[Rfam]
RNA: U5 spliceosomal RNA
Organism: Mandrillus leucophaeus
RNA sequence: AGGCUUUGGUUUCUCUUCAGAACGAAUACAUCUUUUGCCUUUUACUGCAGAUUUCCGUGGAGAGUAACAGCUGGUAGUAACUUUUUUUUUUUUUUUUUUAGGUCAUGCUUGGGCAGGGCCA
Numbered sequence: 001a002g003g004c005u006u007u008g009g010u011u012u013c014u015c016u017u018c019a020g021a022a023c024g025a026a027u028a029c030a031u032c033u034u035u036u037g038c039c040u041u042u043u044a045c046u047g048c049a050g051a052u053u054u055c056c057g058u059g060g061a062g063a064g065u066a067a068c069a070g071c072u073g074g075u076a077g078u079a080a081c082u083u084u085u086u087u088u089u090u091u092u093u094u095u096u097u098u099u100a101g102g103u104c105a106u107g108c109u110u111g112g113g114c115a116g117g118g119c120c121a
Base pairs, nucleotide, nucleotide: 003078004077005076009068010067011066013064014063015062016061017060018059019058028054030052031051032050033049035047099121101120102119103118104117106115